[Rfam]
RNA sequence: GGUCAGAUGAUGAGACCUAAAACAGUCAUUCGUUUGGUGGACGGUUACACACCUAUAAAUAACCUA
Numbered sequence: 001g002g003u004c005a006g007a008u009g010a011u012g013a014g015a016c017c018u019a020a021a022a023c024a025g026u027c028a029u030u031c032g033u034u035u036g037g038u039g040g041a042c043g044g045u046u047a048c049a050c051a052c053c054u055a056u057a058a059a060u061a062a063c064c065u066a
Base pairs, nucleotide, nucleotide: 001017002016003015004014008028009027010026011025036053037052038051039050
RNA: GP20-b RNA